Annotation
SAH (S-adenosyl-L-homocysteine) riboswitch aptamer: a 110-nucleotide sequence from Vulcaniibacterium thermophilum. A search with the family's covariance model found it, with a score of 50 bits. Pairs were carried over by alignment from the consensus structure, which is taken from published work. NCBI's taxonomy places the organism under Bacteria, Pseudomonadota, Gammaproteobacteria, Lysobacterales, Vulcaniibacterium.

[Rfam]
RNA sequence: UUCCCCGAGGGGCGCUGCGACUGUGACGCGGACGAGGUCCGCGCGUUCGCCACGCGAACGCCGACAGCCAGGCUCGGGGAACGUCAGUGCGACAACGGCGCCCGAUGACC
Numbered sequence: 001u002u003c004c005c006c007g008a009g010g011g012g013c014g015c016u017g018c019g020a021c022u023g024u025g026a027c028g029c030g031g032a033c034g035a036g037g038u039c040c041g042c043g044c045g046u047u048c049g050c051c052a053c054g055c056g057a058a059c060g061c062c063g064a065c066a067g068c069c070a071g072g073c074u075c076g077g078g079g080a081a082c083g084u085c086a087g088u089g090c091g092a093c094a095a096c097g098g099c100g101c102c103c104g105a106u107g108a109c110c
Stems, first nucleotide, its partner, number of pairs: 002080007021067004